The family of this 118-nucleotide RNA sequence from Theobroma umbraticum is "Small nucleolar RNA Z278".
It scores 62 bits against the family's covariance model.
Rfam links the family to the GO terms nucleolus and RNA processing.
Rfam describes the family as follows. snoZ278 is a C/D box small nucleolar RNA. Its methylation guide targets have not been reported.
RNA sequence: GCCAAUGAUGAUCUAAUCCAGUUUGGAUGAGGUGCAGUGGAGCCAAGUCCCUGUUUUACAGGGAGAACCUACUUGGUAGAAGCUGCAAUUCACUGAUAUUAAUGGAUUCAACAGAGGC
Dot-bracket structure: (((.............................................(((((.....)))))....................................................)))
Numbered sequence: 001g002c003c004a005a006u007g008a009u010g011a012u013c014u015a016a017u018c019c020a021g022u023u024u025g026g027a028u029g030a031g032g033u034g035c036a037g038u039g040g041a042g043c044c045a046a047g048u049c050c051c052u053g054u055u056u057u058a059c060a061g062g063g064a065g066a067a068c069c070u071a072c073u074u075g076g077u078a079g080a081a082g083c084u085g086c087a088a089u090u091c092a093c094u095g096a097u098a099u100u101a102a103u104g105g106a107u108u109c110a111a112c113a114g115a116g117g118c
Stems, first nucleotide, its partner, number of pairs: 001118003049063005